MIR168 microRNA precursor family: a 151-nucleotide RNA from Carnegiea gigantea. Rfam links the family to the GO terms miRNA-mediated post-transcriptional gene silencing and RISC complex. The family's consensus secondary structure was predicted with WAR. The organism belongs to Carnegiea, within Eukaryota.
[Rfam]
RNA sequence: UUCACGGUAGUCUCUGAUUCGCUUGGUGCAGGUCGGGAACCGCCGAGUCUGCCGCCGUAAACGGUUGUUUGAUUUUCUCUCUCUUCUUCGCAGCCGGUGUUGUGCUUUCGGAUCCCGCCUUGCAUCAAUUGAAUCGGAGCCUCUCGUGAAA
Numbered sequence: 001u002u003c004a005c006g007g008u009a010g011u012c013u014c015u016g017a018u019u020c021g022c023u024u025g026g027u028g029c030a031g032g033u034c035g036g037g038a039a040c041c042g043c044c045g046a047g048u049c050u051g052c053c054g055c056c057g058u059a060a061a062c063g064g065u066u067g068u069u070u071g072a073u074u075u076u077c078u079c080u081c082u083c084u085u086c087u088u089c090g091c092a093g094c095c096g097g098u099g100u101u102g103u104g105c106u107u108u109c110g111g112a113u114c115c116c117g118c119c120u121u122g123c124a125u126c127a128a129u130u131g132a133a134u135c136g137g138a139g140c141c142u143c144u145c146g147u148g149a150a151a
Base pairs, nucleotide, nucleotide: 013138014137017134018133019132020131023128024127025126026125027124028123029122030121031120032119034117035116036115037114038113040111041110
Description:
The literature on the family includes a 2002 paper in Genes Dev by Reinhart et al., "MicroRNAs in plants".